[Rfam]
RNA sequence: AGACCACUCCCUUACUCGGAUCGUCCGGCACGUUCCUGCCGGUGAAGGAGCAGAUU
Numbered sequence: 001a002g003a004c005c006a007c008u009c010c011c012u013u014a015c016u017c018g019g020a021u022c023g024u025c026c027g028g029c030a031c032g033u034u035c036c037u038g039c040c041g042g043u044g045a046a047g048g049a050g051c052a053g054a055u056u
Stems, first nucleotide, its partner, number of pairs: 008049003012045003025042006
RNA: msiK RNA